The record is a 61-nucleotide RNA from Prochlorococcus marinus, which matches "Glutamine-II riboswitch aptamer" in Rfam. The sequence is in the family's curated seed alignment. Pairs were carried over by alignment from the consensus structure, which is taken from published work. NCBI's taxonomy places the organism under Bacteria, Bacillati, Cyanobacteriota, Prochlorococcaceae, Prochlorococcus marinus subsp. marinus.

RNA sequence: AAACGUUCACCCUGAUACUUCAGGGCGCAGACCCAAUAAGGCCACGGAACGGGGACCUUAC
Numbered sequence: 001a002a003a004c005g006u007u008c009a010c011c012c013u014g015a016u017a018c019u020u021c022a023g024g025g026c027g028c029a030g031a032c033c034c035a036a037u038a039a040g041g042c043c044a045c046g047g048a049a050c051g052g053g054g055a056c057c058u059u060a061c
Stems, first nucleotide, its partner, number of pairs: 004051005010025005037060005042054002